[Rfam]
RNA sequence: CCUCCCGAAAUGUCUCUAAGGACAGCCUGACUGGAGGUUGGUGGCGAGGUAGAGCACUAAUUGGGUGUUUAGGGGGAGAAAUUCCUCGGCAUCCUGUAAAACUCCGAACUCGUCACCGCUGUAGAAGGUUGGAGUGAGGGGCGCGGGGUAAGCCUGUGUCCCGAGAGAGGAACAACUCAGACUAAGGUUAAGGUCCCUAAAUACCGGAUAAGUGUAAGGGGGUCUUUGGCCCCAGACAAUGGGAAGGUGGGCUUAGAAGCAGCCAUCCUUUAAAGAGUUCGUAACAGAUCACCCAUCGAGGUCAAAGGCACCGAAAAUGGACGGGAUUAAGCCGGUUACCGAUACCUUAGAACACAGAAUAUGUGAUUUUGUAGGGAGGCGUGCUGUUAGAUUUGAAGCUGGGGUGUGAAUUCCAGUGGAUCUUGCAGUAAUGUGGAU
Numbered sequence: 001c002c003u004c005c006c007g008a009a010a011u012g013u014c015u016c017u018a019a020g021g022a023c024a025g026c027c028u029g030a031c032u033g034g035a036g037g038u039u040g041g042u043g044g045c046g047a048g049g050u051a052g053a054g055c056a057c058u059a060a061u062u063g064g065g066u067g068u069u070u071a072g073g074g075g076g077a078g079a080a081a082u083u084c085c086u087c088g089g090c091a092u093c094c095u096g097u098a099a100a101a102c103u104c105c106g107a108a109c110u111c112g113u114c115a116c117c118g119c120u121g122u123a124g125a126a127g128g129u130u131g132g133a134g135u136g137a138g139g140g141g142c143g144c145g146g147g148g149u150a151a152g153c154c155u156g157u158g159u160c161c162c163g164a165g166a167g168a169g170g171a172a173c174a175a176c177u178c179a180g181a182c183u184a185a186g187g188u189u190a191a192g193g194u195c196c197c198u199a200a201a202u203a204c205c206g207g208a209u210a211a212g213u214g215u216a217a218g219g220g221g222g223u224c225u226u227u228g229g230c231c232c233c234a235g236a237c238a239a240u241g242g243g244a245a246g247g248u249g250g251g252c253u254u255a256g257a258a259g260c261a262g263c264c265a266u267c268c269u270u271u272a273a274a275g276a277g278u279u280c281g282u283a284a285c286a287g288a289u290c291a292c293c294c295a296u297c298g299a300g301g302u303c304a305a306a307g308g309c310a311c312c313g314a315a316a317a318u319g320g321a322c323g324g325g326a327u328u329a330a331g332c333c334g335g336u337u338a339c340c341g342a343u344a345c346c347u348u349a350g351a352a353c354a355c356a357g358a359a360u361a362u363g364u365g366a367u368u369u370u371g372u373a374g375g376g377a378g379g380c381g382u383g384c385u386g387u388u389a390g391a392u393u394u395g396a397a398g399c400u401g402g403g404g405u406g407u408g409a410a411u412u413c414c415a416g417u418g419g420a421u422c423u424u425g426c427a428g429u430a431a432u433g434u435g436g437a438u
Base pairs, nucleotide, nucleotide: 001379002378003377004376005375006374011024012023013022014021015020026134027132028131029130030129031128032127036120037119038118040117041116042115043114044113045112046111047110052105053103054102060097061096063094064093065092066091067090068089072087073086074085075084076083077082138162139161140160141159142158143157144156145155146154167178168177169176182350183349184348185347186346187345188344192340193339194338201337203336204335205334206333207332218312219311222309223308224307225306226305227304228303229302230301231300239296240295241294242293243292245269246268247267250264251263252262270274275290279288280287351369352368353365354364355363356362380433382430383429384428385427386426387425389423390422391421398417399416400415401414402413403412404411405410